[Rfam]
RNA sequence: UGGUACCAGGGUCAAAAGGUCAUGCUUUUCAUGCUUGCAUGAAAAAGCAUGACUUUGGGACCCGCACAAACAUGAGAAAGCAACCCGAUUAGGGUGUAUUUCGAAUGUUUGUAGGAUUACGUGAGCACAAAGUGCGGAGUAAUCCGUGUAUCA
Number, nucleotide and partner (000 for none) at each position: 001u153002g152003g151004u150005a149006c148007c000008a000009g000010g062011g061012u060013c059014a000015a000016a056017a055018g054019g053020u052021c051022a050023u049024g048025c047026u046027u045028u044029u042030c041031a040032u039033g038034c000035u000036u000037g000038c033039a032040u031041g030042a029043a000044a028045a027046a026047g025048c024049a023050u022051g021052a020053c019054u018055u017056u016057g000058g000059g013060a012061c011062c010063c000064g000065c000066a112067c111068a110069a109070a108071c107072a106073u105074g000075a000076g102077a101078a100079a099080g000081c000082a000083a095084c094085c093086c092087g000088a000089u000090u000091a000092g086093g085094g084095u083096g000097u000098a000099u079100u078101u077102c076103g000104a000105a073106u072107g071108u070109u069110u068111g067112u066113a000114g145115g144116a143117u142118u141119a140120c139121g000122u000123g000124a000125g135126c134127a133128c132129a000130a000131a000132g128133u127134g126135c125136g000137g000138a000139g120140u119141a118142a117143u116144c115145c114146g000147u000148g006149u005150a004151u003152c002153a001

The record is a 153-nucleotide RNA from Blautia liquoris, which matches "Clostridiales-1 RNA" in Rfam.
The organism belongs to Blautia, within Bacteria.